[Rfam]
RNA: MIR2617 microRNA precursor family
Organism: Medicago truncatula
RNA sequence: AAGUAGUGUGACAUGCCCGUUUGGUGUUAAACUCUGAUUUAUUAUUUAUUAUUUAAUUGCUUGGAAUAACGGGGUGUUACAUAAUA
Numbered sequence: 001a002a003g004u005a006g007u008g009u010g011a012c013a014u015g016c017c018c019g020u021u022u023g024g025u026g027u028u029a030a031a032c033u034c035u036g037a038u039u040u041a042u043u044a045u046u047u048a049u050u051a052u053u054u055a056a057u058u059g060c061u062u063g064g065a066a067u068a069a070c071g072g073g074g075u076g077u078u079a080c081a082u083a084a085u086a
Stems, first nucleotide, its partner, number of pairs: 003085002006082009016073006